RNA sequence: CCGCUUGGCGUCAGCCCCGCGAAAGCCUAUAUGGAAAGGGUCGAGGGCAACCGAGACUAUGGUGAUAAGCGGCAGUUGGAAUAAGCGUUGUGGACCCGGGGGCAGUGCCCGGCGCCUCCACCAUUUCUCCCGGAGUUGACCGGGCGAUGGGGGCGAAACAGUUUCGACACGCGUGGUAAAGACCUGCCUUUUGCCCGGCAUGAUACCGCCGUCAUCGGGUCAAAUCACAAGUGCCAACGACAACAACGCUAUGGCGCUCGCUGCCUAAUUGACUUAGGCAAGCGCGGUUCGGGGGGCACCGGGCAACAGAAGCCCCCCACU
Numbered sequence: 001c002c003g004c005u006u007g008g009c010g011u012c013a014g015c016c017c018c019g020c021g022a023a024a025g026c027c028u029a030u031a032u033g034g035a036a037a038g039g040g041u042c043g044a045g046g047g048c049a050a051c052c053g054a055g056a057c058u059a060u061g062g063u064g065a066u067a068a069g070c071g072g073c074a075g076u077u078g079g080a081a082u083a084a085g086c087g088u089u090g091u092g093g094a095c096c097c098g099g100g101g102g103c104a105g106u107g108c109c110c111g112g113c114g115c116c117u118c119c120a121c122c123a124u125u126u127c128u129c130c131c132g133g134a135g136u137u138g139a140c141c142g143g144g145c146g147a148u149g150g151g152g153g154c155g156a157a158a159c160a161g162u163u164u165c166g167a168c169a170c171g172c173g174u175g176g177u178a179a180a181g182a183c184c185u186g187c188c189u190u191u192u193g194c195c196c197g198g199c200a201u202g203a204u205a206c207c208g209c210c211g212u213c214a215u216c217g218g219g220u221c222a223a224a225u226c227a228c229a230a231g232u233g234c235c236a237a238c239g240a241c242a243a244c245a246a247c248g249c250u251a252u253g254g255c256g257c258u259c260g261c262u263g264c265c266u267a268a269u270u271g272a273c274u275u276a277g278g279c280a281a282g283c284g285c286g287g288u289u290c291g292g293g294g295g296g297c298a299c300c301g302g303g304c305a306a307c308a309g310a311a312g313c314c315c316c317c318c319a320c321u
Stems, first nucleotide, its partner, number of pairs: 040057003061195005071188005077182001086173003090170003096112005113155007196211004201222003206218002285301004291318006